RNA sequence: UUCAGGUCAAGUGAUGGCGUUCACUUCAACCAUAACUGAUGACGCCUACUAAGAA
Numbered sequence: 001u002u003c004a005g006g007u008c009a010a011g012u013g014a015u016g017g018c019g020u021u022c023a024c025u026u027c028a029a030c031c032a033u034a035a036c037u038g039a040u041g042a043c044g045c046c047u048a049c050u051a052a053g054a055a
Base pairs, nucleotide, nucleotide: 010025011024012023013022016046017045018044019043020042021041
RNA: Fluoride riboswitch aptamer (crcB RNA motif)